[Rfam]
RNA: Glycine riboswitch aptamer
RNA sequence: AUGAGUGAAGUCGGAGACCGGUCCCCCGGGGACAGGCCGAAGGAGCAACUGCCGCCUGCUGACGCGCGGCCAGGAAUCUCUCAGGCUCACAGGACGGCUUUAGGACG
Numbered sequence: 001a002u003g004a005g006u007g008a009a010g011u012c013g014g015a016g017a018c019c020g021g022u023c024c025c026c027c028g029g030g031g032a033c034a035g036g037c038c039g040a041a042g043g044a045g046c047a048a049c050u051g052c053c054g055c056c057u058g059c060u061g062a063c064g065c066g067c068g069g070c071c072a073g074g075a076a077u078c079u080c081u082c083a084g085g086c087u088c089a090c091a092g093g094a095c096g097g098c099u100u101u102a103g104g105a106c107g
Stems, first nucleotide, its partner, number of pairs: 006102008021033003036086003039082002043080003049073002